[Rfam]
RNA sequence: UUCCAGGGCAACCGUGGCUUUAGAUUGUUACUGUCAAUUUGCAUUUGGUAACAGUCUACAGCCAUGGUCGCUCGGGCAAG
Number, nucleotide and partner (000 for none) at each position: 001u000002u000003c000004c000005a000006g000007g000008g000009c000010a000011a000012c067013c066014g000015u064016g063017g062018c061019u000020u000021u000022a000023g056024a055025u054026u053027g052028u051029u050030a049031c048032u047033g000034u000035c000036a000037a000038u000039u000040u000041g000042c000043a000044u000045u000046u000047g032048g031049u030050a029051a028052c027053a026054g025055u024056c023057u000058a000059c000060a000061g018062c017063c016064a015065u000066g013067g012068u000069c000070g000071c000072u000073c000074g000075g000076g000077c000078a000079a000080g000
This 80-nucleotide RNA sequence from Eleutherodactylus coqui belongs to the Rfam family "mir-132 microRNA precursor family". For this family Rfam cites "The developmental miRNA profiles of zebrafish as determined by small RNA cloning" (Chen et al., Genes Dev, 2005). The match comes from Rfam's covariance-model search (82 bits). Taxonomically the source falls in Eleutherodactylus (Eukaryota, Opisthokonta, Chordata, Teleostomi).